[Rfam]
RNA sequence: CUCUAAUAUCAAUCCAGAUGGCUAGUUUUAAGGAAGUAGUCCAGUGAAAUAUUAGAUAUUAAAGAGGUUUAUUCCUUCCUAUUUUAGGUAAAUAUGAAUAAUUAAAAAACAUACCGGUAGGUAUGACGAAAGUAUGUAUUUUAA
Numbered sequence: 001c002u003c004u005a006a007u008a009u010c011a012a013u014c015c016a017g018a019u020g021g022c023u024a025g026u027u028u029u030a031a032g033g034a035a036g037u038a039g040u041c042c043a044g045u046g047a048a049a050u051a052u053u054a055g056a057u058a059u060u061a062a063a064g065a066g067g068u069u070u071a072u073u074c075c076u077u078c079c080u081a082u083u084u085u086a087g088g089u090a091a092a093u094a095u096g097a098a099u100a101a102u103u104a105a106a107a108a109a110c111a112u113a114c115c116g117g118u119a120g121g122u123a124u125g126a127c128g129a130a131a132g133u134a135u136g137u138a139u140u141u142u143a144a
Stems, first nucleotide, its partner, number of pairs: 003055007013047002020041005026035003078088004102144006109137006121127002
The record is a 144-nucleotide RNA sequence, which matches "RT-14 RNA" in Rfam.
The family's consensus secondary structure is taken from published work.